[Rfam]
RNA sequence: UUGAUUAAGCAAGCGCCAGGACUUGCAAUAAGCAAGUUGACGAGGACAGGGUUAAUCGAAGUUAUCGGCGGAUGCCCUGCGGCACAGCUCCGUGUCGAUAGAGGUUUUACAAAACCGCAAGCGAUUGUAGGUACAAAGUAAACUGAAAGGAGCAU
Numbered sequence: 001u002u003g004a005u006u007a008a009g010c011a012a013g014c015g016c017c018a019g020g021a022c023u024u025g026c027a028a029u030a031a032g033c034a035a036g037u038u039g040a041c042g043a044g045g046a047c048a049g050g051g052u053u054a055a056u057c058g059a060a061g062u063u064a065u066c067g068g069c070g071g072a073u074g075c076c077c078u079g080c081g082g083c084a085c086a087g088c089u090c091c092g093u094g095u096c097g098a099u100a101g102a103g104g105u106u107u108u109a110c111a112a113a114a115c116c117g118c119a120a121g122c123g124a125u126u127g128u129a130g131g132u133a134c135a136a137a138g139u140a141a142a143c144u145g146a147a148a149g150g151a152g153c154a155u
Base pairs, nucleotide, nucleotide: 020038021037022036023035024034025033026032047079048078049077050076051075056068057067058066059065080097081096082095083094084093085092103144104143105142106141107140115131116130117128118127119126120125
Rfam assigns this 155-nucleotide RNA sequence from Lutispora thermophila to the family "glmS glucosamine-6-phosphate activated ribozyme aptamer".
Lineage of the source: Bacteria > Bacillati > Lutisporaceae > Lutispora > Lutispora thermophila.
Its family is annotated with catalytic activity and regulation of gene expression in the Gene Ontology.
From the family's description: This entry contains a glucosamine-6-phosphate activated ribozyme that is found in the mRNA for GlmS. GlmS is an enzyme that uses fructose-6-phosphate and glutamine to generate glucosamine-6-phosphate.
The literature on the family includes a 2004 paper in Nature by Winkler et al., "Control of gene expression by a natural metabolite-responsive ribozyme".